Description: Rfam assigns this 87-nucleotide RNA sequence from Fuerstiella sp. to the family "tRNA".

RNA sequence: GGAGAGAUGGCAGAGCGGCCGAUCGCACCGGUCUUGAAAACCGGAGUACCCGCAAGGGUACCCAGGGUUCGAAUCCCUGUCUCUCCG
Numbered sequence: 001g002g003a004g005a006g007a008u009g010g011c012a013g014a015g016c017g018g019c020c021g022a023u024c025g026c027a028c029c030g031g032u033c034u035u036g037a038a039a040a041c042c043g044g045a046g047u048a049c050c051c052g053c054a055a056g057g058g059u060a061c062c063c064a065g066g067g068u069u070c071g072a073a074u075c076c077c078u079g080u081c082u083c084u085c086c087g
Stems, first nucleotide, its partner, number of pairs: 001086007010026002013023001028044005063079005
Rfam's curators write: Transfer RNA (tRNA) molecules are approximately 80 nucleotides in length. A search with the family's covariance model found it, with a score of 52 bits. It is annotated as a transfer RNA. Taxonomically the source falls in Fuerstiella (Bacteria, Pseudomonadati, Planctomycetales, Planctomycetaceae).